[Rfam]
RNA sequence: UGGGCCCUUUCACAGGCCCUCCUGGGACCAGGAUUGGGUUGCUGGUGCUGAGAGAAAGCCCUUGAUUGCAUCCUUGCUCUGGGACGGUACCAGUGGCAGCUGUCACUUAGUGGGACAGAG
Numbered sequence: 001u002g003g004g005c006c007c008u009u010u011c012a013c014a015g016g017c018c019c020u021c022c023u024g025g026g027a028c029c030a031g032g033a034u035u036g037g038g039u040u041g042c043u044g045g046u047g048c049u050g051a052g053a054g055a056a057a058g059c060c061c062u063u064g065a066u067u068g069c070a071u072c073c074u075u076g077c078u079c080u081g082g083g084a085c086g087g088u089a090c091c092a093g094u095g096g097c098a099g100c101u102g103u104c105a106c107u108u109a110g111u112g113g114g115a116c117a118g119a120g
Base pairs, nucleotide, nucleotide: 003049004048005047007045008044013037015035018032019031020030059114060113061112062110063109064108065107067105068104070103071102074099075098076097077096078095079093080092081091082090
The record is a 120-nucleotide RNA from Colobus angolensis, which matches "Small nucleolar RNA SNORA30/SNORA37 family" in Rfam. It scores 96 bits against the family's covariance model. The base pairs follow the family's consensus structure, which was predicted with RNAfold. It is annotated as an H/ACA-box small nucleolar RNA. For this family Rfam cites "RNomics: an experimental approach that identifies 201 candidates for novel, small, non-messenger RNAs in mouse" (Huttenhofer et al., EMBO J, 2001). Rfam describes the family as follows. The members of this family belong to the H/ACA class of snoRNAs that guide the sites of modification of uridines to pseudouridines. This family includes human ACA30 (SNORA30), ACA37 (SNORA37) and the mouse homolog MBI-26. Taxonomically the source falls in Colobus angolensis (Eukaryota, Opisthokonta, Eumetazoa, Craniata).